[Rfam]
RNA sequence: GAUGAAGCAAGAGGAAGAGGUCACUAUGCGCCAGUUCUGGUUGAGAUAUUUUGCCGCGACGGAAAAAACGUCCUGGCUGGCUUGCCUGAGCGCGCCGCAGCGCUUAAAAAUGCUCGCGGAACUGAUGCAGUGGGAGGCGACCGAUUGAAGCCAAUUGCAGACAUCAUGUGUGACUGAGUAUUGGUGUAGGCGAUAGCCUAAAAUCACCCGCCAGCAGAUAAUAUCUGCUGGCUUUUUU
Numbered sequence: 001g002a003u004g005a006a007g008c009a010a011g012a013g014g015a016a017g018a019g020g021u022c023a024c025u026a027u028g029c030g031c032c033a034g035u036u037c038u039g040g041u042u043g044a045g046a047u048a049u050u051u052u053g054c055c056g057c058g059a060c061g062g063a064a065a066a067a068a069c070g071u072c073c074u075g076g077c078u079g080g081c082u083u084g085c086c087u088g089a090g091c092g093c094g095c096c097g098c099a100g101c102g103c104u105u106a107a108a109a110a111u112g113c114u115c116g117c118g119g120a121a122c123u124g125a126u127g128c129a130g131u132g133g134g135a136g137g138c139g140a141c142c143g144a145u146u147g148a149a150g151c152c153a154a155u156u157g158c159a160g161a162c163a164u165c166a167u168g169u170g171u172g173a174c175u176g177a178g179u180a181u182u183g184g185u186g187u188a189g190g191c192g193a194u195a196g197c198c199u200a201a202a203a204u205c206a207c208c209c210g211c212c213a214g215c216a217g218a219u220a221a222u223a224u225c226u227g228c229u230g231g232c233u234u235u236u237u238u
Stems, first nucleotide, its partner, number of pairs: 001165004007158004024133003027129004032124007040117002043113001045111001057079002060076001061074002064071001083110001087106003091102003146153001210232008
RNA: SgrS RNA